[Rfam]
RNA sequence: GGAGUGGAUCAGAUGAUCGCCGGCCUGCAGCAAGCAGACGGGAGGAAAGUCCGAGCUCCAGAGGGCAGGAUGGUCGCUAAUGACGACUGGAGGCGACUCUAAGGAAAGUGCCACAGAAAAUAUACCGCCCGACUCCGUUGGGUAAGGGUGAAAAGGCGAGGUAAGAGCUCACCGUUUUCCGGGUGACCGGAAAAGCAUGGUAAACCCCAUCCGGAGCAAGACCAAAUAGGAGAACAUUUGAGAGUGGCCCGCUCGACGUUCUCGGGUAGCGUCGCUUGAGGCAGCAGGCAACUGCUGUCCUAGAGGAAUGAUCAUCGCCAUACUCCGGGAGAUUGGAAUAUGGAACAGAACUCGGCUUAUGAUCUGCUCCGACU
Numbered sequence: 001g002g003a004g005u006g007g008a009u010c011a012g013a014u015g016a017u018c019g020c021c022g023g024c025c026u027g028c029a030g031c032a033a034g035c036a037g038a039c040g041g042g043a044g045g046a047a048a049g050u051c052c053g054a055g056c057u058c059c060a061g062a063g064g065g066c067a068g069g070a071u072g073g074u075c076g077c078u079a080a081u082g083a084c085g086a087c088u089g090g091a092g093g094c095g096a097c098u099c100u101a102a103g104g105a106a107a108g109u110g111c112c113a114c115a116g117a118a119a120a121u122a123u124a125c126c127g128c129c130c131g132a133c134u135c136c137g138u139u140g141g142g143u144a145a146g147g148g149u150g151a152a153a154a155g156g157c158g159a160g161g162u163a164a165g166a167g168c169u170c171a172c173c174g175u176u177u178u179c180c181g182g183g184u185g186a187c188c189g190g191a192a193a194a195g196c197a198u199g200g201u202a203a204a205c206c207c208c209a210u211c212c213g214g215a216g217c218a219a220g221a222c223c224a225a226a227u228a229g230g231a232g233a234a235c236a237u238u239u240g241a242g243a244g245u246g247g248c249c250c251g252c253u254c255g256a257c258g259u260u261c262u263c264g265g266g267u268a269g270c271g272u273c274g275c276u277u278g279a280g281g282c283a284g285c286a287g288g289c290a291a292c293u294g295c296u297g298u299c300c301u302a303g304a305g306g307a308a309u310g311a312u313c314a315u316c317g318c319c320a321u322a323c324u325c326c327g328g329g330a331g332a333u334u335g336g337a338a339u340a341u342g343g344a345a346c347a348g349a350a351c352u353c354g355g356c357u358u359a360u361g362a363u364c365u366g367c368u369c370c371g372a373c374u
Stems, first nucleotide, its partner, number of pairs: 001370011012316007020042002023039001025037004047358003051355005056216004063250004068212005073087004088102001089100004103207002108205002110201003125147002127143007155173002158170003174196001175194008220273003223269001230263006242254004280299008
A member of the RNA family "Bacterial RNase P class A" from Syntrophus aciditrophicus, 374 nucleotides long. Pairs were carried over by alignment from the consensus structure, which is taken from published work.